[Rfam]
RNA: U4atac minor spliceosomal RNA
Organism: Leptotrombidium deliense
RNA sequence: GCCGUCCUCGUCGAGUGGGAGAUGACUGUUCAGUGAACGUUAAGUGAGGGCAGUCAUGCUGAUCCACAGUACAAUCGCAUCAUGCAGUCGCAUUGCGACUGAUUUUUGAUGCAAUUUUUGAAACC
Numbered sequence: 001g002c003c004g005u006c007c008u009c010g011u012c013g014a015g016u017g018g019g020a021g022a023u024g025a026c027u028g029u030u031c032a033g034u035g036a037a038c039g040u041u042a043a044g045u046g047a048g049g050g051c052a053g054u055c056a057u058g059c060u061g062a063u064c065c066a067c068a069g070u071a072c073a074a075u076c077g078c079a080u081c082a083u084g085c086a087g088u089c090g091c092a093u094u095g096c097g098a099c100u101g102a103u104u105u106u107u108g109a110u111g112c113a114a115u116u117u118u119u120g121a122a123a124c125c
Base pairs, nucleotide, nucleotide: 005019006018007017009015021059022057023056025054026053027052028051029050030049031048037045038044077112078111079110080109081108082107085101086100087099088098089097090096